[Rfam]
RNA sequence: GAGUCGGUUAACCGGUCAUUAAGCUUUACGGGCGUUUACUAUGUUCAUCCAGUUUACCUGGAUUCUUACCGAGUGGCUGGAGCCACUUCGUUUGACGCCUCCCUGUUAACUUCUGAGAGCCGCUUUCCGCGGCUCUUUUUUU
Dot-bracket structure: ((((((......))(....(((((.........))))).)..))))........................((((((......)))))).....((((......)))).......(((((((((.....))))))))).....
Numbered sequence: 001g002a003g004u005c006g007g008u009u010a011a012c013c014g015g016u017c018a019u020u021a022a023g024c025u026u027u028a029c030g031g032g033c034g035u036u037u038a039c040u041a042u043g044u045u046c047a048u049c050c051a052g053u054u055u056a057c058c059u060g061g062a063u064u065c066u067u068a069c070c071g072a073g074u075g076g077c078u079g080g081a082g083c084c085a086c087u088u089c090g091u092u093u094g095a096c097g098c099c100u101c102c103c104u105g106u107u108a109a110c111u112u113c114u115g116a117g118a119g120c121c122g123c124u125u126u127c128c129g130c131g132g133c134u135c136u137u138u139u140u141u142u
Stems, first nucleotide, its partner, number of pairs: 001046004005014002015040001020038005071088006094107004115137009

Alphaproteobacterial sRNA BjrC1505: a 142-nucleotide RNA from Mesorhizobium zhangyense. The base pairs follow the family's consensus structure. By type it is a small RNA.